[Rfam]
RNA sequence: GUCAGCCCCGCCUAUCGCCACGGUCAUUCAGGGUAAGUCCGUCCAUAGGGCGGCGCCGUGGCGGGUUUGAUGGGAAAGGCGGGGUAGGAGGA
Dot-bracket structure: ....(((((((((..(((((((((............(.(((((.....)))))))))))))))..(((.....)))))))))))).......
RNA: DUF1874 RNA